[Rfam]
RNA sequence: UUCCUACAGUGAACAUUCAACGCUGUCGGUGAGUUUGAGCUCUUAAGAAAACCAUCGACCGUUGACUGUACCCUGUGGCACA
Numbered sequence: 001u002u003c004c005u006a007c008a009g010u011g012a013a014c015a016u017u018c019a020a021c022g023c024u025g026u027c028g029g030u031g032a033g034u035u036u037g038a039g040c041u042c043u044u045a046a047g048a049a050a051a052c053c054a055u056c057g058a059c060c061g062u063u064g065a066c067u068g069u070a071c072c073c074u075g076u077g078g079c080a081c082a
Base pairs, nucleotide, nucleotide: 001082004078005077006076007075008074014068015067017065018064019063020062021061022060025059026058027057028056029055030054031053033052034051035050036049

mir-181 microRNA precursor family: an 82-nucleotide RNA from Echeneis naucrates. Pairs were carried over by alignment from the consensus structure, which was predicted with PFOLD. Rfam links the family to the GO terms miRNA-mediated post-transcriptional gene silencing and RISC complex. The match comes from Rfam's covariance-model search (77 bits).